Shown here is a 73-nucleotide RNA from Daphoenositta chrysoptera, a member of the family "Small nucleolar RNA SNORD99". Rfam links the family to the GO terms nucleolus and RNA processing. The family has 23 seed sequences and 673 matches in Rfam 15.1.

RNA sequence: CCUGGUCCAUGAUGACUCCCAAGUCUGGAGACUGUGUUGGAUGAGUCCUGCGGAUAUGGGGCUGAGGCCAGGC
Numbered sequence: 001c002c003u004g005g006u007c008c009a010u011g012a013u014g015a016c017u018c019c020c021a022a023g024u025c026u027g028g029a030g031a032c033u034g035u036g037u038u039g040g041a042u043g044a045g046u047c048c049u050g051c052g053g054a055u056a057u058g059g060g061g062c063u064g065a066g067g068c069c070a071g072g073c
Base pairs, nucleotide, nucleotide: 001072002071003070004069005068
The match comes from Rfam's covariance-model search (67 bits). A reference for the family is Huttenhofer et al. (2001), "RNomics: an experimental approach that identifies 201 candidates for novel, small, non-messenger RNAs in mouse", EMBO J. Rfam classes the family as a C/D-box small nucleolar RNA. The family's consensus secondary structure was predicted with RNAalifold.